[Rfam]
RNA sequence: CAUCUCAAGCUGGGGGCCACAGCAGAAGCAUUCACAUUGUGACCCCCUCAGGUAAUACCUGUGAAUUCUGCU
Dot-bracket structure: ............[[[[.[..((((((((((.......)))].]]]]..(((((...)))))....)))))))
Numbered sequence: 001c002a003u004c005u006c007a008a009g010c011u012g013g014g015g016g017c018c019a020c021a022g023c024a025g026a027a028g029c030a031u032u033c034a035c036a037u038u039g040u041g042a043c044c045c046c047c048u049c050a051g052g053u054a055a056u057a058c059c060u061g062u063g064a065a066u067u068c069u070g071c072u
Stems, first nucleotide, its partner, number of pairs: 013046004018041001021072007028040003049061005